Shown here is a 68-nucleotide RNA from Gasterosteus aculeatus, a member of the family "miR-430 microRNA precursor family". For this family Rfam cites "MicroRNAs regulate brain morphogenesis in zebrafish" (Giraldez et al., Science, 2005).

RNA sequence: CAGAUAACUUCAAACAGAGCCACUGGUGAUGAUUUAGUUCAUAAGUGCUUCUCUUUGGGGUUGUCUUA
Numbered sequence: 001c002a003g004a005u006a007a008c009u010u011c012a013a014a015c016a017g018a019g020c021c022a023c024u025g026g027u028g029a030u031g032a033u034u035u036a037g038u039u040c041a042u043a044a045g046u047g048c049u050u051c052u053c054u055u056u057g058g059g060g061u062u063g064u065c066u067u068a
Stems, first nucleotide, its partner, number of pairs: 004064008014055001016052004021047004026042003